[Rfam]
RNA sequence: CUCCUCAGAUCAGAAGGUGAUUGUGGCUUUGAGUAAAUAUUAAGCAGCCACAGCACUGCCUGGUCAGA
Number, nucleotide and partner (000 for none) at each position: 001c000002u000003c000004c000005u068006c067007a000008g065009a064010u063011c062012a061013g060014a000015a000016g057017g056018u055019g054020a000021u053022u052023g051024u050025g049026g048027c047028u046029u043030u042031g041032a040033g000034u000035a000036a000037a000038u000039a000040u032041u031042a030043a029044g000045c000046a028047g027048c026049c025050a024051c023052a022053g021054c019055a018056c017057u016058g000059c000060c013061u012062g011063g010064u009065c008066a000067g006068a005